[Rfam]
RNA sequence: UUGAACAAAGGCAAACCCGUACGAAAGUCGGGGACGCAAAGCCACGGGCCUUCCGUCAUGAUUCUAUCAUGACCUGGCAGCCGGGUUACUCAAG
Number, nucleotide and partner (000 for none) at each position: 001u094002u000003g091004a090005a000006c000007a000008a000009a000010g000011g037012c036013a000014a000015a000016c032017c031018c030019g029020u000021a028022c027023g000024a000025a000026a000027g022028u021029c019030g018031g017032g016033g000034a000035c080036g012037c011038a000039a000040a087041g086042c085043c084044a000045c083046g082047g081048g078049c077050c076051u000052u000053c000054c000055g000056u000057c000058a000059u000060g000061a000062u000063u000064c000065u000066a000067u000068c000069a000070u000071g000072a000073c000074c000075u000076g050077g049078c048079a000080g035081c047082c046083g045084g043085g042086u041087u040088a000089c000090u004091c003092a000093a000094g001